[Rfam]
RNA sequence: CUUCCUCUGUGAAAUCAAUAAAAAUAUAUUUUAAAAAUAGACAAACAUAUGGGAUAGAUUAAAAUUGCCAUGAUCUGAAGAGGGAGGAUUUAUUUGUGUCCUCCUCCUAUAUGAAAUGGCUGAACAGAAAAAA
Numbered sequence: 001c002u003u004c005c006u007c008u009g010u011g012a013a014a015u016c017a018a019u020a021a022a023a024a025u026a027u028a029u030u031u032u033a034a035a036a037a038u039a040g041a042c043a044a045a046c047a048u049a050u051g052g053g054a055u056a057g058a059u060u061a062a063a064a065u066u067g068c069c070a071u072g073a074u075c076u077g078a079a080g081a082g083g084g085a086g087g088a089u090u091u092a093u094u095u096g097u098g099u100c101c102u103c104c105u106c107c108u109a110u111a112u113g114a115a116a117u118g119g120c121u122g123a124a125c126a127g128a129a130a131a132a133a
Stems, first nucleotide, its partner, number of pairs: 007040004067120004085108004

Rfam assigns this 133-nucleotide RNA from Myotis brandtii to the family "Small nucleolar RNA SNORA29". From the family's description: ACA29 is a member of the H/ACA class of snoRNA that guide the sites of modification of uridines to pseudouridines. A reference for the family is Huttenhofer et al. (2001), "RNomics: an experimental approach that identifies 201 candidates for novel, small, non-messenger RNAs in mouse", EMBO J. The family's consensus secondary structure was predicted with PFOLD. The match comes from Rfam's covariance-model search (99 bits).